[Rfam]
RNA sequence: UGGGCGCAGCACGGGAGCCUCGCGGAGGCUGAGAGGGCGCGGGGCGCCGACCGUCGAACCUGAUCUGGAUCAUGCCAGCGAAGGGAGCACCGUGGACCGACCC
Numbered sequence: 001u002g003g004g005c006g007c008a009g010c011a012c013g014g015g016a017g018c019c020u021c022g023c024g025g026a027g028g029c030u031g032a033g034a035g036g037g038c039g040c041g042g043g044g045c046g047c048c049g050a051c052c053g054u055c056g057a058a059c060c061u062g063a064u065c066u067g068g069a070u071c072a073u074g075c076c077a078g079c080g081a082a083g084g085g086a087g088c089a090c091c092g093u094g095g096a097c098c099g100a101c102c103c
Stems, first nucleotide, its partner, number of pairs: 006091001009088002011054004017029005036048005059084003065078004
A member of the RNA family "TPP riboswitch aptamer (THI element)" from Isoptericola sediminis, 103 nucleotides long. About the family: Vitamin B(1) in its active form thiamin pyrophosphate (TPP) is an essential coenzyme that is synthesised by coupling of pyrimidine and thiazole moieties in bacteria. The previously detected thiamin-regulatory element, thi box was extended, resulting in a new, highly conserved RNA secondary structure, the THI element, which is widely distributed in eubacteria and also occurs in some archaea. The base pairs follow the family's consensus structure, which is taken from published work.